A member of the RNA family "Bacillaceae-1 RNA" from Virgibacillus necropolis, 67 nucleotides long. The base pairs follow the family's consensus structure, which is taken from published work. A search with the family's covariance model found it, with a score of 36 bits.
RNA sequence: AAGGGAGGAAGUUCGAUUAAAACCGCCACAAAGCAUGAGCAACAUCGAACUACCCACGUUGCGUGGG
Numbered sequence: 001a002a003g004g005g006a007g008g009a010a011g012u013u014c015g016a017u018u019a020a021a022a023c024c025g026c027c028a029c030a031a032a033g034c035a036u037g038a039g040c041a042a043c044a045u046c047g048a049a050c051u052a053c054c055c056a057c058g059u060u061g062c063g064u065g066g067g
Stems, first nucleotide, its partner, number of pairs: 011050007025040002053067005